[Rfam]
RNA sequence: CAUAAACACACGCUUAGUUUCUUGGUAAGAGCCAAGAAAGCGGGGGAACCAGGUUUUUACAUUGGGGCGAAUCACUCAUUCACAUGAGGUGUAGGGUACCAUCUUACCCGAGUCCGUCAGCUAACCUCGUCAGCAGUAGAUGGGUCUGUU
Numbered sequence: 001c002a003u004a005a006a007c008a009c010a011c012g013c014u015u016a017g018u019u020u021c022u023u024g025g026u027a028a029g030a031g032c033c034a035a036g037a038a039a040g041c042g043g044g045g046g047a048a049c050c051a052g053g054u055u056u057u058u059a060c061a062u063u064g065g066g067g068c069g070a071a072u073c074a075c076u077c078a079u080u081c082a083c084a085u086g087a088g089g090u091g092u093a094g095g096g097u098a099c100c101a102u103c104u105u106a107c108c109c110g111a112g113u114c115c116g117u118c119a120g121c122u123a124a125c126c127u128c129g130u131c132a133g134c135a136g137u138a139g140a141u142g143g144g145u146c147u148g149u150u
Base pairs, nucleotide, nucleotide: 012134013133014132018039019038020037021036022035023034024033025032026031040130041129042128043127044126045125050064051063065115066114067113073091074090075089076088094109095108096107097106
Shown here is a 150-nucleotide RNA sequence from Paenibacillus lentus, a member of the family "c-di-AMP riboswitch aptamer (ydaO/yuaA leader)". It scores 78 bits against the family's covariance model.